Rfam assigns this 84-nucleotide RNA from Papaver nudicaule to the family "Small nucleolar RNA R11/Z151".
Its family is annotated with nucleolus and RNA processing in the Gene Ontology.

[Rfam]
RNA sequence: AUGCUAAUGAUGAUAAAAAAUUUUAUCUUAGCGGAUUUCAGUGAGAUUUUAUGAAUGAUCUGAAUGUUACACACACUGAAGCCU
Numbered sequence: 001a002u003g004c005u006a007a008u009g010a011u012g013a014u015a016a017a018a019a020a021u022u023u024u025a026u027c028u029u030a031g032c033g034g035a036u037u038u039c040a041g042u043g044a045g046a047u048u049u050u051a052u053g054a055a056u057g058a059u060c061u062g063a064a065u066g067u068u069a070c071a072c073a074c075a076c077u078g079a080a081g082c083c084u
Stems, first nucleotide, its partner, number of pairs: 001084001003082003
For this family Rfam cites "Identification of 66 box C/D snoRNAs in Arabidopsis thaliana: extensive gene duplications generated multiple isoforms predicting new ribosomal RNA 2'-O-methylation sites" (Barneche et al., J Mol Biol, 2001). By type it is a C/D-box small nucleolar RNA.